Shown here is an 81-nucleotide sequence from Lepisosteus oculatus, a member of the family "mir-31 microRNA precursor family".
Gene Ontology terms of the family: RISC complex and gene silencing by miRNA.
RNA sequence: AUUUGGAGUGAAGGCAAGAUGUUGGCAUAGCUGUUGAAUUCUAUGACCUGCUAUGCCUUCAGAUUGUCAUCUUUCCUAUCC
Number, nucleotide and partner (000 for none) at each position: 001a000002u000003u000004u000005g076006g075007a074008g073009u000010g071011a070012a000013g068014g067015c066016a065017a064018g000019a000020u061021g060022u000023u000024g057025g056026c055027a054028u053029a052030g051031c050032u000033g000034u000035u000036g000037a000038a000039u000040u000041c000042u000043a000044u000045g000046a000047c000048c000049u000050g031051c030052u029053a028054u027055g026056c025057c024058u000059u000060c021061a020062g000063a000064u017065u016066g015067u014068c013069a000070u011071c010072u000073u008074u007075c006076c005077u000078a000079u000080c000081c000